[Rfam]
RNA: Alphaproteobacteria transfer-messenger RNA
Organism: Rhodobacteraceae bacterium 63075
Nucleotides: 351
Base pairs, nucleotide, nucleotide: 040053041052042051043050044049057188058187059186060185061184067181068180069177070176071175072174081166082165085163086162087161091107092106093105094104095103108148109147110146111145112144113143114142189204190203191202195214196213198212199211200210317332318331319330320329323348324347325346326345327344328343
Number, partner (000 for none) and nucleotide at each position: 001000c002000c003000c004000c005000u006000u007000u008000g009000c010000a011000a012000u013000c014000g015000g016000g017000g018000a019000a020000a021000a022000g023000g024000c025000g026000c027000c028000u029000a030000u031000a032000u033000u034000c035000g036000u037000c038000a039000u040053g041052u042051c043050u044049c045000u046000u047000c048000g049044g050043a051042g052041g053040c054000u055000a056000u057188g058187g059186a060185c061184a062000u063000a064000a065000a066000c067181g068180c069177g070176c071175u072174c073000g074000u075000a076000a077000u078000a079000a080000g081166c082165g083000g084000a085163u086162c087161g088000g089000a090000c091107c092106c093105g094104g095103g096000g097000g098000c099000g100000g101000u102000a103095c104094c105093c106092g107091g108148c109147g110146g111145c112144u113143c114142c115000a116000c117000c118000a119000a120000u121000c122000a123000u124000c125000c126000u127000u128000c129000g130000u131000u132000u133000g134000a135000g136000g137000a138000u139000c140000a141000c142114g143113g144112g145111g146110c147109c148108g149000a150000a151000a152000c153000a154000g155000g156000a157000u158000c159000g160000a161087c162086g163085g164000a165082c166081g167000u168000c169000u170000a171000a172000a173000g174072g175071g176070g177069u178000u179000a180068g181067c182000u183000u184061u185060g186059u187058c188057u189204c190203g191202g192000c193000u194000g195214u196213c197000u198212g199211c200210c201000a202191c203190c204189g205000u206000u207000a208000c209000c210200g211199g212198c213196g214195a215000a216000a217000a218000a219000a220000g221000u222000a223000c224000a225000a226000u227000u228000g229000c230000a231000a232000a233000c234000g235000a236000c237000a238000a239000u240000c241000g242000u243000g244000c245000u246000c247000c248000g249000g250000u251000u252000g253000c254000a255000g256000u257000u258000g259000c260000u261000g262000c263000g264000u265000a266000a267000g268000c269000a270000g271000u272000a273000g274000c275000a276000a277000g278000a279000c280000c281000g282000a283000a284000a285000c286000u287000u288000c289000a290000a291000g292000c293000c294000c295000u296000g297000u298000c299000c300000u301000c302000u303000a304000g305000c306000a307000a308000g309000g310000u311000c312000a313000g314000g315000c316000g317332g318331g319330g320329u321000u322000c323348g324347c325346a326345g327344g328343c329320a330319c331318c332317u333000g334000g335000c336000a337000a338000c339000a340000g341000a342000a343328g344327c345326c346325u347324g348323c349000a350000c351000u